Rfam assigns this 74-nucleotide sequence from Phrynocephalus forsythii to the family "Small nucleolar RNA SNORD99".
RNA sequence: UUUGGUCCGUGAUGACUCUUGUUUUUAAUGGUGACAGAUGGAUGAAUCCUGCGGAUAUGGGGCUGAGACCAAAC
Numbered sequence: 001u002u003u004g005g006u007c008c009g010u011g012a013u014g015a016c017u018c019u020u021g022u023u024u025u026u027a028a029u030g031g032u033g034a035c036a037g038a039u040g041g042a043u044g045a046a047u048c049c050u051g052c053g054g055a056u057a058u059g060g061g062g063c064u065g066a067g068a069c070c071a072a073a074c
Stems, first nucleotide, its partner, number of pairs: 001073005

The family has 23 seed sequences and 673 matches in Rfam 15.1. Pairs were carried over by alignment from the consensus structure, which was predicted with RNAalifold. The organism belongs to Phrynocephalus, within Eukaryota. For this family Rfam cites "RNomics: an experimental approach that identifies 201 candidates for novel, small, non-messenger RNAs in mouse" (Huttenhofer et al., EMBO J, 2001).